A member of the RNA family "FMN riboswitch aptamer (RFN element)" from Vallitalea pronyensis, 115 nucleotides long. The RFN element is a highly conserved domain that is found frequently in the 5'-untranslated regions of prokaryotic mRNAs that encode for flavin mononucleotide (FMN) biosynthesis and transport proteins.

RNA sequence: GAAAUUCUUCAGGGCAGGGUGAAAUUCCCGACCGGCGGUUAUAGUCCGCGAGCCUAACGGCUGACUUGGUGUAAUUCCAAGACCGACAGUAUAGUCUGGAUGAGAGAAGAAAUGU
Number, nucleotide and partner (000 for none) at each position: 001g000002a000003a113004a000005u111006u110007c109008u108009u107010c106011a000012g000013g000014g000015c000016a000017g029018g028019g027020u000021g000022a000023a000024a000025u000026u000027c019028c018029c017030g000031a095032c094033c085034g084035g049036c048037g047038g046039u000040u000041a000042u000043a000044g083045u082046c038047c037048g036049c035050g000051a000052g061053c060054c059055u000056a000057a000058c000059g054060g053061c052062u000063g000064a000065c081066u080067u079068g078069g077070u000071g000072u000073a000074a000075u000076u000077c069078c068079a067080a066081g065082a045083c044084c034085g033086a000087c098088a097089g096090u000091a000092u000093a000094g032095u031096c089097u088098g087099g000100a000101u000102g000103a000104g000105a000106g010107a009108a008109g007110a006111a005112a000113u003114g000115u000